[Rfam]
Description:
A member of the RNA family "Plant signal recognition particle RNA" from Cucumis sativus, 298 nucleotides long. The literature on the family includes a 2002 paper in Nucleic Acids Res by Regalia et al., "Prediction of signal recognition particle RNA genes". Lineage of the source: Eukaryota > Mesangiospermae > fabids > Cucurbitaceae > Cucumis. Gene Ontology terms of the family: signal recognition particle, endoplasmic reticulum targeting and SRP-dependent cotranslational protein targeting to membrane, signal sequence recognition.
RNA sequence: GCCGAGCCAUUUAACAAUGGCUUGUAACCCAUGUGGGGGCUUUAAGGUGGUUGGAGGUUGGUUCAUUGUAUCUUGUCGGAACUCUUAAGAGGACUACUUGCUCGCCCAUUCCAAGAAGGGAGUUGGGCCUCGCAUUCUAGACGAAAGUCCAAAGUGCGAUGCCUUUAGAUUGGAGGAAACCGCGUGAGGUUGGCCUUACAGAGCAGUGUCACCUCCUGCUCUCGUCGGUGGACGGAUAACGUGCAAGUUCUUGAACAAAGUCUGUCCCAAGCCCGUGUCCUAUUUUACUUACACAUUC
Numbered sequence: 001g002c003c004g005a006g007c008c009a010u011u012u013a014a015c016a017a018u019g020g021c022u023u024g025u026a027a028c029c030c031a032u033g034u035g036g037g038g039g040c041u042u043u044a045a046g047g048u049g050g051u052u053g054g055a056g057g058u059u060g061g062u063u064c065a066u067u068g069u070a071u072c073u074u075g076u077c078g079g080a081a082c083u084c085u086u087a088a089g090a091g092g093a094c095u096a097c098u099u100g101c102u103c104g105c106c107c108a109u110u111c112c113a114a115g116a117a118g119g120g121a122g123u124u125g126g127g128c129c130u131c132g133c134a135u136u137c138u139a140g141a142c143g144a145a146a147g148u149c150c151a152a153a154g155u156g157c158g159a160u161g162c163c164u165u166u167a168g169a170u171u172g173g174a175g176g177a178a179a180c181c182g183c184g185u186g187a188g189g190u191u192g193g194c195c196u197u198a199c200a201g202a203g204c205a206g207u208g209u210c211a212c213c214u215c216c217u218g219c220u221c222u223c224g225u226c227g228g229u230g231g232a233c234g235g236a237u238a239a240c241g242u243g244c245a246a247g248u249u250c251u252u253g254a255a256c257a258a259a260g261u262c263u264g265u266c267c268c269a270a271g272c273c274c275g276u277g278u279c280c281u282a283u284u285u286u287a288c289u290u291a292c293a294c295a296u297u298c
Stems, first nucleotide, its partner, number of pairs: 001040003004023008028037003044297002047294003053288001055286003058282001060280001061278002064275001068272002071269001075266001077264002083254001085253001087252003091249002097247005103241002106235002110232004115226002118223006125164004130159007138151001140149003172216005182209004190201003
Dot-bracket structure: (((((((((((....))))))))....(((....))))))...((.(((...(.((((.(((.(...((.(...(.((....(.(.(((.((....(((((.((.((..((((.((.((((((.((((.(((((((.(.(((....))).).))))))).)))).......(((((.....((((....(((......)))....))))..))))).)))))).))..)))).))....)).))))))))))))........)).)..).))..).)).).).))).)...))).)).